Rfam assigns this 600-nucleotide part of an RNA from Jatrophihabitans endophyticus to the family "Bacterial large subunit ribosomal RNA". Taxonomically the source falls in Jatrophihabitans (Bacteria, Actinomycetes, Jatrophihabitantales, Jatrophihabitantaceae).
RNA sequence: GGGCGCACGGUGGAUGCCUUGGCACCAGGAACCGAAGAAGGACGUAAGGGGCUGCGAUAAGCCUCGGGGAGCUGCCGACUGAGCUUUGAUCCGAGGAUUUCCGAAUGGGGAAACCCGGCAGGAGUCAUGUCCUGUCACCCAUGCCUGAACACAUAGGGCAUGCGGAGGGAACGUGGGGAAGUGAAACAUCUCAGUACCCACAGGAAGAGAAAGCAACCGCGAUUCCGUUAGUAGUGGCGAGCGAAAGCGGAACAGGCCAAACCACAUACGCGUGAUAGCCGGCAGGCGUUGCGUAUGCGGGGUUGUGGGGCCGCAUUGUCGAUUCUGCCGAAUCGACGAGGAGUCAGAAAGCGUUGUAGUUAGUCGAGGGACUUGGGAAGGUCCGGCACAGAGGGUGAUACCCCCGUAGACGAAAACUCGACGCCUCCUUUGCGUUACCCCAAGUAGCAGCGAGCCCGUGAAAUUCGCUGUGAAUCCGGCGGGACCACCCGCUAAGCCUAAAUAUUCCCUGGUGACCGAUAGCGGACAAGUACCGUGAGGGAAAGGUGAAAAGUACCCCGGGAGGGGAGUGAAAUAGUACCUGAAACCGCGCGCCUACAA
Numbered sequence: 001g002g003g004c005g006c007a008c009g010g011u012g013g014a015u016g017c018c019u020u021g022g023c024a025c026c027a028g029g030a031a032c033c034g035a036a037g038a039a040g041g042a043c044g045u046a047a048g049g050g051g052c053u054g055c056g057a058u059a060a061g062c063c064u065c066g067g068g069g070a071g072c073u074g075c076c077g078a079c080u081g082a083g084c085u086u087u088g089a090u091c092c093g094a095g096g097a098u099u100u101c102c103g104a105a106u107g108g109g110g111a112a113a114c115c116c117g118g119c120a121g122g123a124g125u126c127a128u129g130u131c132c133u134g135u136c137a138c139c140c141a142u143g144c145c146u147g148a149a150c151a152c153a154u155a156g157g158g159c160a161u162g163c164g165g166a167g168g169g170a171a172c173g174u175g176g177g178g179a180a181g182u183g184a185a186a187c188a189u190c191u192c193a194g195u196a197c198c199c200a201c202a203g204g205a206a207g208a209g210a211a212a213g214c215a216a217c218c219g220c221g222a223u224u225c226c227g228u229u230a231g232u233a234g235u236g237g238c239g240a241g242c243g244a245a246a247g248c249g250g251a252a253c254a255g256g257c258c259a260a261a262c263c264a265c266a267u268a269c270g271c272g273u274g275a276u277a278g279c280c281g282g283c284a285g286g287c288g289u290u291g292c293g294u295a296u297g298c299g300g301g302g303u304u305g306u307g308g309g310g311c312c313g314c315a316u317u318g319u320c321g322a323u324u325c326u327g328c329c330g331a332a333u334c335g336a337c338g339a340g341g342a343g344u345c346a347g348a349a350a351g352c353g354u355u356g357u358a359g360u361u362a363g364u365c366g367a368g369g370g371a372c373u374u375g376g377g378a379a380g381g382u383c384c385g386g387c388a389c390a391g392a393g394g395g396u397g398a399u400a401c402c403c404c405c406g407u408a409g410a411c412g413a414a415a416a417c418u419c420g421a422c423g424c425c426u427c428c429u430u431u432g433c434g435u436u437a438c439c440c441c442a443a444g445u446a447g448c449a450g451c452g453a454g455c456c457c458g459u460g461a462a463a464u465u466c467g468c469u470g471u472g473a474a475u476c477c478g479g480c481g482g483g484a485c486c487a488c489c490c491g492c493u494a495a496g497c498c499u500a501a502a503u504a505u506u507c508c509c510u511g512g513u514g515a516c517c518g519a520u521a522g523c524g525g526a527c528a529a530g531u532a533c534c535g536u537g538a539g540g541g542a543a544a545g546g547u548g549a550a551a552a553g554u555a556c557c558c559c560g561g562g563a564g565g566g567g568a569g570u571g572a573a574a575u576a577g578u579a580c581c582u583g584a585a586a587c588c589g590c591g592c593g594c595c596u597a598c599a600a
Stems, first nucleotide, its partner, number of pairs: 001596006008589003016581001017546002021517002023514007030506002032168002040102003043056003062096007071084003107116003117136007138165002140162007172203001173201005183190002213220002223502001224251005234242002254499004262300002265297008307441003312434004349426001351424006358418004363411003369384005387391001393405003447471008478493005533540002556567004